RNA sequence: GUCAGUUUGUCCGAGUGGUUAAGGAGAAAGACUUGAAAUCUUUUGGGCUCUGCCCGCACAGGUUCAAAUCCUGUAGCUGACG
Numbered sequence: 001g002u003c004a005g006u007u008u009g010u011c012c013g014a015g016u017g018g019u020u021a022a023g024g025a026g027a028a029a030g031a032c033u034u035g036a037a038a039u040c041u042u043u044u045g046g047g048c049u050c051u052g053c054c055c056g057c058a059c060a061g062g063u064u065c066a067a068a069u070c071c072u073g074u075a076g077c078u079g080a081c082g
Stems, first nucleotide, its partner, number of pairs: 001081007010025003027043005058074005
Record summary
tRNA: an 82-nucleotide sequence from Brettanomyces naardenensis. By type it is a transfer RNA. From the family's description: Transfer RNA (tRNA) molecules are approximately 80 nucleotides in length.